[Rfam]
RNA sequence: CUCCAGUGAUGAGUAUUGUUUUUGUGCCACGUGUCUGGGCCACUGAUUCUUAGUGAUGGAUGUGAGGUACUGAGGAG
Numbered sequence: 001c002u003c004c005a006g007u008g009a010u011g012a013g014u015a016u017u018g019u020u021u022u023u024g025u026g027c028c029a030c031g032u033g034u035c036u037g038g039g040c041c042a043c044u045g046a047u048u049c050u051u052a053g054u055g056a057u058g059g060a061u062g063u064g065a066g067g068u069a070c071u072g073a074g075g076a077g
Base pairs, nucleotide, nucleotide: 001077002076003075004074